[Rfam]
A member of the RNA family "Bacillaceae-1 RNA" from Bacillus sp. HNG, 65 nucleotides long. The source organism's lineage runs through Bacteria, Bacillati, Bacilli, Caryophanales and Bacillus.

RNA sequence: AUUAAAUGAACAAAUACUAAACGCCACGUCCUGUGGCAACGUCUUUAUGACCCGCAUCAUGUGGG
Numbered sequence: 001a002u003u004a005a006a007u008g009a010a011c012a013a014a015u016a017c018u019a020a021a022c023g024c025c026a027c028g029u030c031c032u033g034u035g036g037c038a039a040c041g042u043c044u045u046u047a048u049g050a051c052c053c054g055c056a057u058c059a060u061g062u063g064g065g
Base pairs, nucleotide, nucleotide: 012046013045014044016042017041023037024036025035026034027033051065052064053063054062055061